Shown here is a 246-nucleotide RNA sequence from Nezara viridula, a member of the family "Arthropod 7SK RNA".
RNA sequence: GAAAGUGUGUGUCAGGUGAUGGCACAACUGAACAUUGAUCGUACAUUGAUUUAGUGCAGAUCUGCUCAGUAUAGUGUUAUCACGUGGUUUCUAGUAGCCAAAGAGGAACUUGGCUCUCCGAUAGAGAUCCGCUUCUGGGCUCCUCGAAUCACCGCGGCUGUUUUCAAAUUGGAGUACUCUCCCUCUGUAAUUUUGUCACUUCCAUUACUCGGCACUACACGUCACCGUAGUCUGCCUUAUUUUUAA
Numbered sequence: 001g002a003a004a005g006u007g008u009g010u011g012u013c014a015g016g017u018g019a020u021g022g023c024a025c026a027a028c029u030g031a032a033c034a035u036u037g038a039u040c041g042u043a044c045a046u047u048g049a050u051u052u053a054g055u056g057c058a059g060a061u062c063u064g065c066u067c068a069g070u071a072u073a074g075u076g077u078u079a080u081c082a083c084g085u086g087g088u089u090u091c092u093a094g095u096a097g098c099c100a101a102a103g104a105g106g107a108a109c110u111u112g113g114c115u116c117u118c119c120g121a122u123a124g125a126g127a128u129c130c131g132c133u134u135c136u137g138g139g140c141u142c143c144u145c146g147a148a149u150c151a152c153c154g155c156g157g158c159u160g161u162u163u164u165c166a167a168a169u170u171g172g173a174g175u176a177c178u179c180u181c182c183c184u185c186u187g188u189a190a191u192u193u194u195g196u197c198a199c200u201u202c203c204a205u206u207a208c209u210c211g212g213c214a215c216u217a218c219a220c221g222u223c224a225c226c227g228u229a230g231u232c233u234g235c236c237u238u239a240u241u242u243u244u245a246a
Base pairs, nucleotide, nucleotide: 001203003201004200005199006198007197016083017082018081019080020079028069029068030067033064034063037062038061039060040059041057042056043055044054211236212235213234214231215230216229217228218227
Pairs were carried over by alignment from the consensus structure, which is taken from published work. NCBI's taxonomy places the organism under Eukaryota, Opisthokonta, Protostomia, Arthropoda, Nezara. It scores 60 bits against the family's covariance model. The family has 19 seed sequences and 229 matches in Rfam 15.1. By type it is a non-coding RNA gene. The literature on the family includes a 2008 paper in Mol Biol Evol by Gruber et al., "Arthropod 7SK RNA".